[Rfam]
Rfam assigns this 100-nucleotide RNA from Cytophaga hutchinsonii to the family "SAM riboswitch aptamer (S box leader)".
RNA sequence: GUAUUAUACAGAACGAAGGGAGAGAUUAGGCUCUAUGAACUUCUGGCAACCUGCCCACCAAAGCAAGGUGCUAAUUCCUACCCAUGUGGAACUAUAAAAA
Numbered sequence: 001g002u003a004u005u006a007u008a009c010a011g012a013a014c015g016a017a018g019g020g021a022g023a024g025a026u027u028a029g030g031c032u033c034u035a036u037g038a039a040c041u042u043c044u045g046g047c048a049a050c051c052u053g054c055c056c057a058c059c060a061a062a063g064c065a066a067g068g069u070g071c072u073a074a075u076u077c078c079u080a081c082c083c084a085u086g087u088g089g090a091a092c093u094a095u096a097a098a099a100a
Stems, first nucleotide, its partner, number of pairs: 002099001004097005013044001015043004022033003027080004045072004050068002052065003081089002

About this RNA: The family's consensus secondary structure is taken from published work. The SAM riboswitch is found upstream of a number of genes which code for proteins involved in methionine or cysteine biosynthesis in Gram-positive bacteria. The SAM riboswitch acts at the level of transcription termination control. The predicted structure consists of a complex stem-loop region followed by a single stem loop terminator region. The match comes from Rfam's covariance-model search (55 bits). Lineage of the source: Bacteria > Pseudomonadati > Cytophagales > Cytophaga > Cytophaga hutchinsonii.